[Rfam]
RNA sequence: AAAACGGCCCUUUUCAGGGCCACAAAUUUAAAUUGACCGUAGUGCU
Numbered sequence: 001a002a003a004a005c006g007g008c009c010c011u012u013u014u015c016a017g018g019g020c021c022a023c024a025a026a027u028u029u030a031a032a033u034u035g036a037c038c039g040u041a042g043u044g045c046u
Stems, first nucleotide, its partner, number of pairs: 006021006
Shown here is a 46-nucleotide RNA sequence from Trichuris suis, a member of the family "Histone 3' UTR stem-loop". Rfam describes the family as follows. The mRNAs of metazoan histone genes lack a poly-A tail. 3' end processing occurs at a site between a highly conserved stem-loop (modelled by this family) and a purine rich region around 20 nts downstream (the histone downstream element, or HDE). The stem-loop is bound by a 31 kDa stem-loop binding protein (SLBP - also termed the histone hairpin binding protein, or HBP). Together with U7 snRNA binding of the HDE, SLBP binding nucleate s the formation of the processing complex. The family's consensus secondary structure is taken from published work. The family has 50 seed sequences and 44,596 matches in Rfam 15.1. For this family Rfam cites "The sequence of the stem and flanking sequences at the 3' end of histone mRNA are critical determinants for the binding of the stem-loop binding protein" (Williams and Marzluff, Nucleic Acids Res, 1995). NCBI's taxonomy places the organism under Eukaryota, Eumetazoa, Bilateria, Ecdysozoa, Trichuris.